[Rfam]
RNA sequence: GGAGGGCUCCCGUAGUGGCCGAUCGGGGCGGUCUUGAAAACCGCUGAGCGGGGUGACUCGUUCCGUGGGUUCGAAUCCCACGCCCUCC
Numbered sequence: 001g002g003a004g005g006g007c008u009c010c011c012g013u014a015g016u017g018g019c020c021g022a023u024c025g026g027g028g029c030g031g032u033c034u035u036g037a038a039a040a041c042c043g044c045u046g047a048g049c050g051g052g053g054u055g056a057c058u059c060g061u062u063c064c065g066u067g068g069g070u071u072c073g074a075a076u077c078c079c080a081c082g083c084c085c086u087c088c
Stems, first nucleotide, its partner, number of pairs: 001088007010026003013022001015020001027045006046063005066080004
Dot-bracket structure: (((((((..((((.(....).).)))((((((.......))))))(((((........)))))..((((.......)))).)))))))
RNA: Selenocysteine transfer RNA